[Rfam]
RNA sequence: UCGUUUGCGGAUGUGGCAUCAUCAAGAUUCACAUGCAAAUGCACGGUGGUGAUGAUAAUACCCUUCUUCCCCUUCUAAACUUCAUUGCCAAACAUCUUUGAAAGUGAGAAUCUUGAUGAUGCUGCAUCGGCAAUAAA
Numbered sequence: 001u002c003g004u005u006u007g008c009g010g011a012u013g014u015g016g017c018a019u020c021a022u023c024a025a026g027a028u029u030c031a032c033a034u035g036c037a038a039a040u041g042c043a044c045g046g047u048g049g050u051g052a053u054g055a056u057a058a059u060a061c062c063c064u065u066c067u068u069c070c071c072c073u074u075c076u077a078a079a080c081u082u083c084a085u086u087g088c089c090a091a092a093c094a095u096c097u098u099u100g101a102a103a104g105u106g107a108g109a110a111u112c113u114u115g116a117u118g119a120u121g122c123u124g125c126a127u128c129g130g131c132a133a134u135a136a137a
Stems, first nucleotide, its partner, number of pairs: 010128021032106002

Shown here is a 137-nucleotide RNA from Hibiscus syriacus, a member of the family "mir-172 microRNA precursor family".
The organism belongs to Hibiscus, within Eukaryota.
Rfam describes the family as follows. mir-172 has been experimentally verified in Arabidopsis thaliana.
The family has 11 seed sequences and 2,076 matches in Rfam 15.1.
It scores 86 bits against the family's covariance model.